[Rfam]
RNA sequence: AGCGUGGCACGUUGUGGAAGACUAGUGAUUUUGUUGUUGUACAUUUACGUUCUUGACAACAAGUCACAGUCUACCUCAGUGAGCUGCGCC
Numbered sequence: 001a002g003c004g005u006g007g008c009a010c011g012u013u014g015u016g017g018a019a020g021a022c023u024a025g026u027g028a029u030u031u032u033g034u035u036g037u038u039g040u041a042c043a044u045u046u047a048c049g050u051u052c053u054u055g056a057c058a059a060c061a062a063g064u065c066a067c068a069g070u071c072u073a074c075c076u077c078a079g080u081g082a083g084c085u086g087c088g089c090c
Stems, first nucleotide, its partner, number of pairs: 002089007010081005016075002019072005025067007033060006
The family of this 90-nucleotide RNA sequence from Cottoperca gobio is "mir-7 microRNA precursor family".
Lineage of the source: Eukaryota > Deuterostomia > Gnathostomata > Eupercaria > Cottoperca.
Rfam 15.1 lists 2,589 matches to the family in 797 species.
This family represents the microRNA (miRNA) precursor mir-7.